Nucleotides: 587
Stems, first nucleotide, its partner, number of pairs: 001583008010575003014570002022404004027400002029396005035201004042193002045190004051154016068137001078136005085119003094113008158181003162178006204216004217239006240385001242342002248300006254280002257275006281290002305328004311322003330339003353379007361372002413454003417451001418448007428438002465540001466538004470532001471529005478503002481498006505519005546564004550559003
Number, partner (000 for none) and nucleotide at each position: 001583c002582c003581c004580g005579c006578g007577g008576u009000c010575a011574g012573a013000c014570g015569g016000a017000a018000a019000g020000a021000c022404c023403c024402c025401g026000u027400g028399c029396a030395c031394c032393u033392u034000u035201a036200c037199u038198a039000c040000a041000g042193c043192u044000u045190u046189g047188c048187a049000g050000u051154g052153g053152u054151g055150c056149u057148a058147g059146g060145g061144a062143c063142u064141u065140c066139a067000u068137g069000u070000g071000u072000a073000g074000g075000a076000u077000a078136g079135g080134u081133g082132g083000g084000a085119g086118g087117c088000u089000u090000g091000g092000a093000a094113g095112c096111c097110u098109g099108g100107g101106c102000g103000c104000c105000a106101g107100c108099c109098c110097g111096g112095g113094u114000g115000g116000a117087g118086c119085c120000a121000a122000c123000c124000u125000u126000g127000a128000a129000a130000u131000a132082c133081c134080a135079c136078c137068c138000u139066u140065g141064a142063a143062g144061u145060c146059u147058c148057u149056g150055g151054c152053a153052u154051c155000u156000a157000a158181c159180c160179g161000u162178g163177g164176c165175c166174c167173g168000u169000g170000a171000u172000c173167c174166g175165g176164g177163u178162c179160c180159g181158g182000g183000a184000c185000c186000c187048u188047g189046c190045a191000u192043g193042g194000c195000g196000g197000g198038u199037a200036g201035u202000u203000u204216g205215a206214c207213u208000g209000g210000g211000g212000c213207g214206g215205u216204c217239g218238c219237c220236u221235c222234c223000c224000a225000a226000a227000g228000u229000g230000u231000a232000a233000c234222g235221g236220a237219g238218g239217c240385g241000c242342g243341c244000g245000a246000u247000g248300g249299u250298g251297g252296g253295c254280u255279c256000a257275g258274a259273g260272c261271g262270g263000u264000c265000g266000g267000a268000a269000a270262u271261c272260g273259c274258u275257c276000g277000u278000c279255g280254a281290g282289u283000g284000c285000a286000a287000u288000g289282g290281c291000a292000u293000a294000a295253g296252c297251c298250c299249g300248c301000c302000u303000g304000a305328c306327u307326g308325c309000a310000a311322g312321a313320c314000u315000g316000a317000c318000a319000a320313g321312u322311c323000g324000a325308g326307c327306a328305g329000a330339g331338a332337c333000g334000a335000a336000a337332g338331u339330c340000g341243g342242c343000c344000a345000u346000a347000g348000u349000g350000a351000u352000c353379c354378g355377g356376u357375g358374g359373c360000u361372c362371c363000a364000c365000g366000u367000g368000g369000a370000c371362g372361g373359g374358c375357c376356a377355u378354c379353g380000c381000u382000c383000a384000a385240c386000g387000g388000a389000u390000a391000a392033a393032a394031g395030g396029u397000a398000c399028g400027c401025c402024g403023g404022g405000g406000a407000u408000a409000a410000c411000a412000g413454g414453c415452u416000g417451a418448u419447g420446a421445c422444u423443c424442c425000c426000a427000a428438g429437a430000g431000u432000c433000c434000a435000u436000a437429u438428c439000g440000a441000c442424g443423g444422a445421g446420u447419c448418g449000u450000u451417u452415g453414g454413c455000a456000c457000c458000u459000c460000g461000a462000u463000g464000u465540c466538g467537g468536c469535u470532c471529a472528u473527c474526a475525c476000a477000u478503c479502c480000u481498g482497g483496g484495g485494c486493u487000g488000g489000a490000g491000c492000a493486g494485g495484u496483c497482c498481c499000a500000a501000g502479g503478g504000u505519u506518c507517g508516g509515c510000u511000g512000u513000u514000c515509g516508c517507c518506g519505a520000u521000u522000a523000a524000a525475g526474u527473g528472g529471u530000a531000c532470g533000u534000g535469a536468g537467c538466u539000g540465g541000g542000u543000u544000u545000a546564g547563a548562a549561c550559g551558u552557c553000g554000u555000g556000a557552g558551a559550c560000a561549g562548u563547u564546c565000g566000g567000u568000c569015c570014c571000u572000a573012u574011c575010u576008g577007c578006c579005g580004u581003g582002g583001g584000u585000g586000u587000c